[Rfam]
RNA: FMN riboswitch aptamer (RFN element)
RNA sequence: AAGCGUUCUCAGGGCGGGGUGGAAUUCCCCACCGGCGGUGAUGGCGACCUGUUCGCACGAGCCCGCGAGCGCCCGCGGCGCGCCAUGCGCGGCGGGGUCAGCAGACCUGGUGAGAUCCCGGGGCCGACGGUUCAGGGCCUGUGUUGCCGCCAGGGGCGGCAAGACGAGCCCCUACAGUCCGGAUGAAAGAGAGCGCGG
Numbered sequence: 001a002a003g004c005g006u007u008c009u010c011a012g013g014g015c016g017g018g019g020u021g022g023a024a025u026u027c028c029c030c031a032c033c034g035g036c037g038g039u040g041a042u043g044g045c046g047a048c049c050u051g052u053u054c055g056c057a058c059g060a061g062c063c064c065g066c067g068a069g070c071g072c073c074c075g076c077g078g079c080g081c082g083c084c085a086u087g088c089g090c091g092g093c094g095g096g097g098u099c100a101g102c103a104g105a106c107c108u109g110g111u112g113a114g115a116u117c118c119c120g121g122g123g124c125c126g127a128c129g130g131u132u133c134a135g136g137g138c139c140u141g142u143g144u145u146g147c148c149g150c151c152a153g154g155g156g157c158g159g160c161a162a163g164a165c166g167a168g169c170c171c172c173u174a175c176a177g178u179c180c181g182g183a184u185g186a187a188a189g190a191g192a193g194c195g196c197g198g
Stems, first nucleotide, its partner, number of pairs: 003196008017029003033126002035066004061124002069102002106122005128181003